[Rfam]
RNA sequence: AAAUGAAUUAAGGGGCAACCCUUAACUGGCCGAUUGGGGAAAAACCGAGAGGUUCAAGCCCAGGGGGCAGAAAGCUCUACAAAGCAGCGCUAAACAUGUAGAGCGGAGGGCAUGGCGGUAGCGCAUACAACGACGUGCCAA
Number, nucleotide and partner (000 for none) at each position: 001a000002a000003a000004u000005g000006a000007a000008u025009u024010a023011a022012g021013g020014g019015g000016c000017a000018a000019c014020c013021c012022u011023u010024a009025a008026c070027u069028g068029g000030c067031c066032g000033a000034u063035u062036g061037g060038g059039g000040a000041a000042a000043a054044a053045c052046c051047g000048a000049g000050a000051g046052g045053u044054u043055c000056a000057a000058g000059c038060c037061c036062a035063g034064g000065g000066g031067g030068c028069a027070g026071a000072a000073a000074g104075c103076u102077c101078u100079a099080c098081a097082a000083a000084g000085c000086a000087g124088c123089g122090c121091u120092a000093a000094a000095c000096a000097u081098g080099u079100a078101g077102a076103g075104c074105g000106g000107a000108g000109g139110g138111c137112a136113u135114g134115g000116c132117g131118g000119u000120a091121g090122c089123g088124c087125a000126u000127a000128c000129a000130a000131c117132g116133a000134c114135g113136u112137g111138c110139c109140a000141a000
This 141-nucleotide RNA belongs to the Rfam family "IMES-2 RNA motif". The literature on the family includes a 2009 paper in Nature by Weinberg et al., "Exceptional structured noncoding RNAs revealed by bacterial metagenome analysis". It is annotated as a non-coding RNA gene.